[Rfam]
RNA: Small nucleolar RNA SNORD53/SNORD92
RNA sequence: GGGGAGGGAUAAUGCUGAGAAUGGUUUUGCAUACAAGACUGAAUUAAUUUGAUGACACAAUUCUCUUGGCUAUCUGACCCC
Number, nucleotide and partner (000 for none) at each position: 001g081002g080003g079004g078005a000006g000007g000008g000009a000010u000011a000012a000013u000014g000015c000016u000017g000018a000019g000020a000021a000022u000023g000024g000025u000026u000027u000028u000029g000030c000031a000032u000033a000034c000035a000036a000037g000038a000039c000040u000041g000042a000043a000044u000045u000046a000047a000048u000049u000050u000051g000052a000053u000054g000055a000056c000057a000058c000059a000060a000061u000062u000063c000064u000065c000066u000067u000068g000069g000070c000071u000072a000073u000074c000075u000076g000077a000078c004079c003080c002081c001